[Rfam]
RNA: gltS RNA
RNA sequence: AAUGACCAAGGAAUGUUUUUUUCGCAAACUUUUCAGCGAGAGACGGAAUGGAAGCAGGCUAAUUUCACACAUAUUAGCCCUUUGAGAGACAAUUAUAAGGAACAAU
Dot-bracket structure: ...................((((((..........))))))...............(((((((.........)))))))...........................
Numbered sequence: 001a002a003u004g005a006c007c008a009a010g011g012a013a014u015g016u017u018u019u020u021u022u023c024g025c026a027a028a029c030u031u032u033u034c035a036g037c038g039a040g041a042g043a044c045g046g047a048a049u050g051g052a053a054g055c056a057g058g059c060u061a062a063u064u065u066c067a068c069a070c071a072u073a074u075u076a077g078c079c080c081u082u083u084g085a086g087a088g089a090c091a092a093u094u095a096u097a098a099g100g101a102a103c104a105a106u
Stems, first nucleotide, its partner, number of pairs: 020041006057079007